[Rfam]
A member of the RNA family "Manganese Mn2+ riboswitch aptamer (yybP-ykoY)" from Azoarcus indigens, 160 nucleotides long.
Gene Ontology term of the family: manganese ion binding.
The family has 29 seed sequences and 1,126 matches in Rfam 15.1.
The pairing is the family consensus, mapped onto this sequence.
RNA sequence: UCUCUUGGGGAGUAGCCGGCUUCCAGUCCAGGAAGCGCCUGCGUCAACAUGCUCGGCCCAACGGCCGUGGCGCAGGCAAGCAGUGGUAGGCGAGACCAGGCGAGCCAUCCGUGUAAGCCGGCCGGGCGCACGUAUUGUUCGUUUCCGCGUCCCGGCCGCC
Numbered sequence: 001u002c003u004c005u006u007g008g009g010g011a012g013u014a015g016c017c018g019g020c021u022u023c024c025a026g027u028c029c030a031g032g033a034a035g036c037g038c039c040u041g042c043g044u045c046a047a048c049a050u051g052c053u054c055g056g057c058c059c060a061a062c063g064g065c066c067g068u069g070g071c072g073c074a075g076g077c078a079a080g081c082a083g084u085g086g087u088a089g090g091c092g093a094g095a096c097c098a099g100g101c102g103a104g105c106c107a108u109c110c111g112u113g114u115a116a117g118c119c120g121g122c123c124g125g126g127c128g129c130a131c132g133u134a135u136u137g138u139u140c141g142u143u144u145c146c147g148c149g150u151c152c153c154g155g156c157c158g159c160c
Base pairs, nucleotide, nucleotide: 019036020035021034037077038076039075040074041073042072043071044070045069046068054067055066056065057064058063085160